Rfam assigns this 121-nucleotide RNA sequence from Burkholderia multivorans to the family "Betaproteobacteria-1 RNA". The source organism's lineage runs through Bacteria, Pseudomonadota, Betaproteobacteria, Burkholderiales and Burkholderia multivorans.
RNA sequence: CGCCUUACUGGUCGGCUAAAAAUACACGGCAGCGGUAAGGGGAUACCGGUUUCUGUGGGGGCAGAGUUGAGACAACCGGCACGCGGGCGACGAUAGCGCGUGACUCGAAUGACUGUCUGAA
Numbered sequence: 001c002g003c004c005u006u007a008c009u010g011g012u013c014g015g016c017u018a019a020a021a022a023u024a025c026a027c028g029g030c031a032g033c034g035g036u037a038a039g040g041g042g043a044u045a046c047c048g049g050u051u052u053c054u055g056u057g058g059g060g061g062c063a064g065a066g067u068u069g070a071g072a073c074a075a076c077c078g079g080c081a082c083g084c085g086g087g088c089g090a091c092g093a094u095a096g097c098g099c100g101u102g103a104c105u106c107g108a109a110u111g112a113c114u115g116u117c118u119g120a121a
Stems, first nucleotide, its partner, number of pairs: 001042001003040008029056004047078005064106004080102006092117005